[Rfam]
Annotation
Alphaproteobacteria transfer-messenger RNA: a 359-nucleotide sequence from Mesorhizobium sp. 8. Its family is annotated with RNA catabolic process in the Gene Ontology. Its Rfam clan is "tRNA clan". Bacterial tmRNA, also known as 10Sa RNA or SsrA, is named for its dual tRNA and mRNA-like properties. Its role is to liberate the mRNA from a stalled ribosome. To accomplish this part of the tmRNA is used as a reading frame that ends in a translation stop signal. The broken mRNA is replaced in the ribosome by the tmRNA and translation of the tmRNA leads to addition of a proteolysis tag to the incomplete protein enabling recognition by a protease. Recently a number of permuted tmRNA genes have been found encoded in two parts. tmRNAs have been identified in eubacteria and some chloroplasts but are absent from archaeal and eukaryote nuclear genomes. The family's consensus secondary structure is taken from published work. A search with the family's covariance model found it, with a score of 307 bits.
RNA sequence: GACCUUCCCUUUUGCCCGGCCGGUCCCUAUAUUCGGUGCGUCGGCUCGUCCGACUAUGGCGAUAAACAGGCGAUGCAAUAAACCGUUCGGACCCGGGGGCGGUACCCGGCGCCUCCACCAAAAGCCGCCGCUUCGUUCGGCGGCUUCUGCUGGGGGCGAAACAGGAUCGACGAAGGUGUAAAGAUCGUUCUUUUGCCCGGCAUUGUACCACCGUUAUCGGGCUAAACUUAUAGUUGCCAACGACAACUAUGCGGAAGCUCGUCUCGCUGCGUAAUGCGGCGCGAACGCUUCAAAUCAAGUCCUAGCGGUUCGCACUUCUAGGCGGGGUUCGGAGGCACCUGGCAACAGAAGCCUCCACU
Number, nucleotide and partner (000 for none) at each position: 001g000002a000003c000004c000005u000006u000007c000008c000009c000010u000011u000012u000013u000014g000015c000016c000017c000018g000019g000020c000021c000022g000023g000024u000025c000026c000027c000028u000029a000030u000031a000032u000033u000034c000035g000036g000037u000038g000039c000040g054041u053042c052043g051044g050045c000046u000047c000048g000049u000050c044051c043052g042053a041054c040055u000056a000057u000058g197059g196060c195061g194062a193063u000064a000065a000066a000067c000068a000069g189070g188071c187072g186073a185074u184075g000076c000077a000078a000079u000080a000081a000082a000083c176084c175085g000086u000087u173088c172089g171090g000091a000092c000093c109094c108095g107096g106097g105098g000099g000100c000101g000102g000103u000104a000105c097106c096107c095108g094109g093110c158111g157112c156113c155114u154115c153116c152117a000118c000119c000120a000121a000122a000123a000124g000125c000126c000127g000128c000129c000130g000131c000132u000133u000134c000135g000136u000137u000138c000139g000140g000141c000142g000143g000144c000145u000146u000147c000148u000149g000150c000151u000152g116153g115154g114155g113156g112157c111158g110159a000160a000161a000162c000163a000164g000165g000166a000167u000168c000169g000170a000171c089172g088173a087174a000175g084176g083177u000178g000179u000180a000181a000182a000183g000184a074185u073186c072187g071188u070189u069190c000191u000192u000193u062194u061195g060196c059197c058198c213199g212200g211201c000202a000203u224204u000205g222206u000207a000208c220209c219210a000211c200212c199213g198214u000215u000216a000217u000218c000219g209220g208221g000222c205223u000224a203225a000226a000227c000228u000229u000230a000231u000232a000233g000234u000235u000236g000237c000238c000239a000240a000241c000242g000243a000244c000245a000246a000247c000248u000249a000250u000251g000252c000253g000254g000255a000256a000257g000258c000259u000260c000261g000262u000263c000264u000265c000266g000267c000268u000269g000270c000271g000272u000273a000274a000275u000276g000277c000278g000279g000280c000281g000282c000283g000284a000285a000286c000287g000288c000289u000290u000291c000292a000293a000294a000295u000296c000297a000298a000299g000300u000301c000302c000303u000304a000305g000306c000307g000308g000309u000310u000311c000312g000313c000314a000315c000316u000317u000318c000319u000320a000321g000322g000323c000324g000325g340326g339327g338328u337329u000330c000331g356332g355333a354334g353335g352336c351337a328338c327339c326340u325341g000342g000343c000344a000345a000346c000347a000348g000349a000350a000351g336352c335353c334354u333355c332356c331357a000358c000359u000